[Rfam]
RNA sequence: CCUGGGGCUCGCGCCCCAGGCUAUAUGCUGUCGUCGCAUCCGCGACU
Number, nucleotide and partner (000 for none) at each position: 001c020002c019003u018004g017005g016006g015007g014008c013009u000010c000011g000012c000013g008014c007015c006016c005017c004018a003019g002020g001021c000022u000023a000024u000025a000026u000027g000028c000029u000030g000031u000032c000033g046034u045035c044036g043037c042038a000039u000040c000041c000042g037043c036044g035045a034046c033047u000
Overview:
Rfam assigns this 47-nucleotide RNA sequence from Stieleria varia to the family "Acido-Lenti-1 RNA". Lineage of the source: Bacteria > Planctomycetota > Planctomycetia > Pirellulales > Stieleria. It scores 40 bits against the family's covariance model. It is annotated as a small RNA. The family's consensus secondary structure is taken from published work.